About this RNA
This 161-nucleotide RNA from bacterium HR29 belongs to the Rfam family "glmS glucosamine-6-phosphate activated ribozyme aptamer".

[Rfam]
RNA sequence: GUCACUGGUCAAGCGCCUGGUCCGCCGCCUCCGGCGGCGGAUGACGAGGAGGGAGCAGCAUCGAACCACUCGGCGGGUGGCUCCCCGGCGUGGCACCGUCGUGAGGUUCCUGACAAACCAGCCUGGGCAACCGGCUGACAAAGCAGGGGCCGUGUGCUGGC
Numbered sequence: 001g002u003c004a005c006u007g008g009u010c011a012a013g014c015g016c017c018u019g020g021u022c023c024g025c026c027g028c029c030u031c032c033g034g035c036g037g038c039g040g041a042u043g044a045c046g047a048g049g050a051g052g053g054a055g056c057a058g059c060a061u062c063g064a065a066c067c068a069c070u071c072g073g074c075g076g077g078u079g080g081c082u083c084c085c086c087g088g089c090g091u092g093g094c095a096c097c098g099u100c101g102u103g104a105g106g107u108u109c110c111u112g113a114c115a116a117a118c119c120a121g122c123c124u125g126g127g128c129a130a131c132c133g134g135c136u137g138a139c140a141a142a143g144c145a146g147g148g149g150c151c152g153u154g155u156g157c158u159g160g161c
Base pairs, nucleotide, nucleotide: 020042021041022040023039024038025037026036027035029033052085053083054082055081056080061073062072063071064070086101087100088099089098090096105151106150107149108148109147110146111145119137120136121135122134123133125132126131
Record summary
It is annotated as a riboswitch.